RNA: Bacterial RNase P class A
RNA sequence: UCCGCGAGCCGUGCCAUCGUUUCCGCGUCAGCGGGAAAGGAAAGUCCGGACAGCGCAGGGCAAUCCACCGGUGAACAGCCGGGCUCCCUUGAGCAGGAGACAGACAGUGCCACAGAGAAUGACAGCCCGCGUCCGCGAGGGCGGGGGUGAUGGUGAAAACGUGGGGUAAGAGCCCACGCGCCGUUUGCAGUAAUGCAGGGGCGGGGUAAACCUUGGAUGCUGAAAUGCCACGUAUAUGUGCCUUGAAGGGCGGCCCGCCCGAGUUUUCCCGGCAACGGGGAACGGGUGCAGGGGUAGGCAGCUAGAGGGCGUCCGCAAGGGCGUUCCCAGAUAAAUGAUGGCAGCCCCUCCGGGGGUACAGAAUCCGGCUUACAGGCUUGCAAACACU
Numbered sequence: 001u002c003c004g005c006g007a008g009c010c011g012u013g014c015c016a017u018c019g020u021u022u023c024c025g026c027g028u029c030a031g032c033g034g035g036a037a038a039g040g041a042a043a044g045u046c047c048g049g050a051c052a053g054c055g056c057a058g059g060g061c062a063a064u065c066c067a068c069c070g071g072u073g074a075a076c077a078g079c080c081g082g083g084c085u086c087c088c089u090u091g092a093g094c095a096g097g098a099g100a101c102a103g104a105c106a107g108u109g110c111c112a113c114a115g116a117g118a119a120u121g122a123c124a125g126c127c128c129g130c131g132u133c134c135g136c137g138a139g140g141g142c143g144g145g146g147g148u149g150a151u152g153g154u155g156a157a158a159a160c161g162u163g164g165g166g167u168a169a170g171a172g173c174c175c176a177c178g179c180g181c182c183g184u185u186u187g188c189a190g191u192a193a194u195g196c197a198g199g200g201g202c203g204g205g206g207u208a209a210a211c212c213u214u215g216g217a218u219g220c221u222g223a224a225a226u227g228c229c230a231c232g233u234a235u236a237u238g239u240g241c242c243u244u245g246a247a248g249g250g251c252g253g254c255c256c257g258c259c260c261g262a263g264u265u266u267u268c269c270c271g272g273c274a275a276c277g278g279g280g281a282a283c284g285g286g287u288g289c290a291g292g293g294g295u296a297g298g299c300a301g302c303u304a305g306a307g308g309g310c311g312u313c314c315g316c317a318a319g320g321g322c323g324u325u326c327c328c329a330g331a332u333a334a335a336u337g338a339u340g341g342c343a344g345c346c347c348c349u350c351c352g353g354g355g356g357u358a359c360a361g362a363a364u365c366c367g368g369c370u371u372a373c374a375g376g377c378u379u380g381c382a383a384a385c386a387c388u
Stems, first nucleotide, its partner, number of pairs: 001384001004381007011373001012343007020037007042371003046368005051222004060273002063218005068082005083101001084099004102213002107211002109207003123152002125148004130143004160178006180202001181200002185198005226300004237290005266282005307326008